[Rfam]
RNA sequence: ACUAUGAUUCCACUGGAAUCCUCUACUCACACAUGUUCGGAUGAGUCGAACCGCUAGUGA
Numbered sequence: 001a002c003u004a005u006g007a008u009u010c011c012a013c014u015g016g017a018a019u020c021c022u023c024u025a026c027u028c029a030c031a032c033a034u035g036u037u038c039g040g041a042u043g044a045g046u047c048g049a050a051c052c053g054c055u056a057g058u059g060a
Stems, first nucleotide, its partner, number of pairs: 006020005027060004035051006
A member of the RNA family "MDR-NUDIX RNA" from Candidatus Mycosynbacter amalyticus, 60 nucleotides long. It scores 66 bits against the family's covariance model. Lineage of the source: Bacteria > Bacteria candidate phyla > Candidatus Saccharimonadota > Candidatus Mycosynbacter. Pairs were carried over by alignment from the consensus structure, which is taken from published work.